[Rfam]
RNA sequence: ACGGAAGGGCACCACCAGGAGUGGGGUCUGCGGCUUAAUUUGACUCAACACGGGAAAACUCACCCGGUCCGGACACGCGAGGAUUGACAGACCAGAGAUCUUUCUUGAUUCGGUGGGUGGUGGUGCAUGGCCGUUCCUAGUCGGGUGGAGCGAUCUGUCUGGUUAAUUCCGGAUAACGGGCGAGACUCUGCCCUGCUAAUUAGCGCGGCGGCGACUGGCGAAAUAACCCAUGGUUAGUCCGCCCGCGUCGAGCCGGCCGUGUCGUCGUUGGUGGGGCCUCGUGUCACUCCUUCGCGCGCGGUCGGUCCGGCGUGCGCGCGCCGCCACGCCAGAAACAGGCUUCUUAGAGGGACGGGCGGUAAACAGCCGCACGAAGGUGAGCGAUAACAGGUCUGUGAUGCCCUUAGACGUCCGGGGCCGCACGCGUGCUACAAUGGGGGAGGCAGCGCGAUAUUACGUCCCUGCCCUAACGGCGUCGGGAAAGCGCACAGUCUCCCCCCCGACCGGAAUCGGGGCUCGCAACUGUGCCCCGUGAACGAGGAAUUCCCAGUAGGCGCGGGUCAUAACCCUGCGCCGACUACGUCCCUGCCCUUUGUA
Numbered sequence: 001a002c003g004g005a006a007g008g009g010c011a012c013c014a015c016c017a018g019g020a021g022u023g024g025g026g027u028c029u030g031c032g033g034c035u036u037a038a039u040u041u042g043a044c045u046c047a048a049c050a051c052g053g054g055a056a057a058a059c060u061c062a063c064c065c066g067g068u069c070c071g072g073a074c075a076c077g078c079g080a081g082g083a084u085u086g087a088c089a090g091a092c093c094a095g096a097g098a099u100c101u102u103u104c105u106u107g108a109u110u111c112g113g114u115g116g117g118u119g120g121u122g123g124u125g126c127a128u129g130g131c132c133g134u135u136c137c138u139a140g141u142c143g144g145g146u147g148g149a150g151c152g153a154u155c156u157g158u159c160u161g162g163u164u165a166a167u168u169c170c171g172g173a174u175a176a177c178g179g180g181c182g183a184g185a186c187u188c189u190g191c192c193c194u195g196c197u198a199a200u201u202a203g204c205g206c207g208g209c210g211g212c213g214a215c216u217g218g219c220g221a222a223a224u225a226a227c228c229c230a231u232g233g234u235u236a237g238u239c240c241g242c243c244c245g246c247g248u249c250g251a252g253c254c255g256g257c258c259g260u261g262u263c264g265u266c267g268u269u270g271g272u273g274g275g276g277c278c279u280c281g282u283g284u285c286a287c288u289c290c291u292u293c294g295c296g297c298g299c300g301g302u303c304g305g306u307c308c309g310g311c312g313u314g315c316g317c318g319c320g321c322c323g324c325c326a327c328g329c330c331a332g333a334a335a336c337a338g339g340c341u342u343c344u345u346a347g348a349g350g351g352a353c354g355g356g357c358g359g360u361a362a363a364c365a366g367c368c369g370c371a372c373g374a375a376g377g378u379g380a381g382c383g384a385u386a387a388c389a390g391g392u393c394u395g396u397g398a399u400g401c402c403c404u405u406a407g408a409c410g411u412c413c414g415g416g417g418c419c420g421c422a423c424g425c426g427u428g429c430u431a432c433a434a435u436g437g438g439g440g441a442g443g444c445a446g447c448g449c450g451a452u453a454u455u456a457c458g459u460c461c462c463u464g465c466c467c468u469a470a471c472g473g474c475g476u477c478g479g480g481a482a483a484g485c486g487c488a489c490a491g492u493c494u495c496c497c498c499c500c501c502g503a504c505c506g507g508a509a510u511c512g513g514g515g516c517u518c519g520c521a522a523c524u525g526u527g528c529c530c531c532g533u534g535a536a537c538g539a540g541g542a543a544u545u546c547c548c549a550g551u552a553g554g555c556g557c558g559g560g561u562c563a564u565a566a567c568c569c570u571g572c573g574c575c576g577a578c579u580a581c582g583u584c585c586c587u588g589c590c591c592u593u594u595g596u597a
Stems, first nucleotide, its partner, number of pairs: 001596003005593007014583002018547005023432001025430003029426004033421002039054004063416005069410001074115003077111001086104002089101003119404002122402004128398001129396001130392003133388003140181003144177001146176001147156003159172004187380002192350003196347004202341003353373002356370005436499007448487003460480002464476002467473001506537001511532006553575008
Dot-bracket structure: (((.(((((((..((..((((((.(((.((((((....((((........))))........(((((.(....((((........((.(((.......))).))......).)))...((.((((..((((((((....(((.(.((((....)))..((((......))))...)).))).....((...(((.((((..(((......................................................................................................................................)))..)))))))..((.(((((.....))))).)).....)).....))).)))...).))))))).....).)))))...)).)))).))).)...(((((((.....(((.........((..((.(.....).))..))....))).....)))))))......(....((((((..........))))))....).....))))).....((((((((.......))))))))......))...)))))))))).